[Rfam]
This 54-nucleotide RNA sequence from Bagarius yarrelli belongs to the Rfam family "UnaL2 LINE 3' element". Rfam links the family to the GO term transposition, RNA-mediated. The family's RNA type in Rfam is cis-regulatory element. It scores 56 bits against the family's covariance model. The eel long interspersed element (LINE) UnaL2 and its partner short interspersed element (SINE) share a conserved 3' tail containing a stem-loop that is critical for their retrotransposition. Presumably, the first step of retrotransposition is the recognition of their 3' tails by UnaL2-encoded reverse transcriptase. The solution structure of a 17-nucleotide RNA derived from the 3' tail of UnaL2 was determined by NMR. The family has 30 seed sequences and 493,311 matches in Rfam 15.1.

RNA sequence: UGUAUAAAAAAAUGUAAGUCACUCUGGAUAAGGGCGUCUGCUAAAUGCUGUAAA
Dot-bracket structure: ............((((...(.((((.....)))).)..))).)...........